[Rfam]
RNA sequence: CGGCGACUGACGAGCGACCAACUGCAGACGGGAGCGAGAGGGAAGCCGACAGAAGAGUACUCAGGUAGAAAGCGUGACAGAGGGCCGGCAUAGAAAGCGCUUUGUUGCCCACCGAGGACGGAGGGAUAGCGUCCGAGGAGCUGAAGGAGAGUCCCACUUCAGACGCCUGAGGAACUCGAAUAAAAG
Dot-bracket structure: ((((......(..((..................))..)......))))...........((((((........(((((((((.................))))))))).......(((((..[[[[[..)))))......((((((....]]]]].))))))...))))))...............
Numbered sequence: 001c002g003g004c005g006a007c008u009g010a011c012g013a014g015c016g017a018c019c020a021a022c023u024g025c026a027g028a029c030g031g032g033a034g035c036g037a038g039a040g041g042g043a044a045g046c047c048g049a050c051a052g053a054a055g056a057g058u059a060c061u062c063a064g065g066u067a068g069a070a071a072g073c074g075u076g077a078c079a080g081a082g083g084g085c086c087g088g089c090a091u092a093g094a095a096a097g098c099g100c101u102u103u104g105u106u107g108c109c110c111a112c113c114g115a116g117g118a119c120g121g122a123g124g125g126a127u128a129g130c131g132u133c134c135g136a137g138g139a140g141c142u143g144a145a146g147g148a149g150a151g152u153c154c155c156a157c158u159u160c161a162g163a164c165g166c167c168u169g170a171g172g173a174a175c176u177c178g179a180a181u182a183a184a185a186g
Stems, first nucleotide, its partner, number of pairs: 001048004011038001014035002060171006074108009116134005123155005141162006

IMES-1 RNA motif: a 186-nucleotide sequence. On this family, see Weinberg et al., Nature 2009: "Exceptional structured noncoding RNAs revealed by bacterial metagenome analysis". Pairs were carried over by alignment from the consensus structure, which is taken from published work.